This 119-nucleotide RNA sequence from Blastococcus mobilis belongs to the Rfam family "Actinobacteria sRNA Ms_IGR-7".
The match comes from Rfam's covariance-model search (47 bits).
Lineage of the source: Bacteria > Bacillati > Geodermatophilales > Geodermatophilaceae > Blastococcus.
[Rfam]
RNA sequence: ACGAGAUGCCCUUCUGAACUGGCGAUACGGACCCUAAGCAAGUCGUAUCUUCCCAGGUCAGAAGGGCAUUCUCGUGUUCCUGCGCCUAUCCACCACCCUCAGCCCAUCGGUGGAUCGAG
Numbered sequence: 001a002c003g004a005g006a007u008g009c010c011c012u013u014c015u016g017a018a019c020u021g022g023c024g025a026u027a028c029g030g031a032c033c034c035u036a037a038g039c040a041a042g043u044c045g046u047a048u049c050u051u052c053c054c055a056g057g058u059c060a061g062a063a064g065g066g067c068a069u070u071c072u073c074g075u076g077u078u079c080c081u082g083c084g085c086c087u088a089u090c091c092a093c094c095a096c097c098c099u100c101a102g103c104c105c106a107u108c109g110g111u112g113g114a115u116c117g118a119g
Stems, first nucleotide, its partner, number of pairs: 003071002006069008015060003019056004024049003028045001031043002100117001102115001104113003